RNA sequence: AAACCAAGAAGGGAGCUCUCUUCAGUCUAGUCCAGAUGGUUUUAGGGCUGAUCUCUGCUGCUGACUCGUUCGUUCAUGAACUCAUCAAUCACCUUUUGAAAAUGAUGUGUUUCUGAUGGAACGAUGCAGGAGCUGAGGUUAGCUCUGGUUGUCUCGCCUUGGACUGAAGGGAGCUCCCUUUUAUACUAUA
Numbered sequence: 001a002a003a004c005c006a007a008g009a010a011g012g013g014a015g016c017u018c019u020c021u022u023c024a025g026u027c028u029a030g031u032c033c034a035g036a037u038g039g040u041u042u043u044a045g046g047g048c049u050g051a052u053c054u055c056u057g058c059u060g061c062u063g064a065c066u067c068g069u070u071c072g073u074u075c076a077u078g079a080a081c082u083c084a085u086c087a088a089u090c091a092c093c094u095u096u097u098g099a100a101a102a103u104g105a106u107g108u109g110u111u112u113c114u115g116a117u118g119g120a121a122c123g124a125u126g127c128a129g130g131a132g133c134u135g136a137g138g139u140u141a142g143c144u145c146u147g148g149u150u151g152u153c154u155c156g157c158c159u160u161g162g163a164c165u166g167a168a169g170g171g172a173g174c175u176c177c178c179u180u181u182u183a184u185a186c187u188a189u190a
Stems, first nucleotide, its partner, number of pairs: 013176008023166007058132002061129003067123004075115001
This 190-nucleotide RNA from Protea cynaroides belongs to the Rfam family "MIR159 microRNA precursor family". Pairs were carried over by alignment from the consensus structure, which was predicted with WAR. For this family Rfam cites "Computational identification of plant microRNAs and their targets, including a stress-induced miRNA" (Jones-Rhoades and Bartel, Mol Cell, 2004). A search with the family's covariance model found it, with a score of 103 bits.